A member of the RNA family "c-di-GMP-I riboswitch aptamer" from Tepidibacillus fermentans, 88 nucleotides long. Gene Ontology term of the family: cyclic-di-GMP binding. It scores 73 bits against the family's covariance model. Lineage of the source: Bacteria > Bacillati > Bacilli > Caryophanales > Tepidibacillus.
[Rfam]
RNA sequence: AUAUACUAAGGGCAAACCUGCCGAAAGACGGGGACGCAAAGCCAAGGGCCUAAGGAGUAACAUAAUUCUAUGGCAGCCGGUUGCAUGA
Numbered sequence: 001a002u003a004u005a006c007u008a009a010g011g012g013c014a015a016a017c018c019u020g021c022c023g024a025a026a027g028a029c030g031g032g033g034a035c036g037c038a039a040a041g042c043c044a045a046g047g048g049c050c051u052a053a054g055g056a057g058u059a060a061c062a063u064a065a066u067u068c069u070a071u072g073g074c075a076g077c078c079g080g081u082u083g084c085a086u087g088a
Stems, first nucleotide, its partner, number of pairs: 012037002017032004022027001040082004046078002048074003055068004
Dot-bracket structure: ...........((...((((.(....).))))...))..((((..(((((....((((......))))...)))..))))))......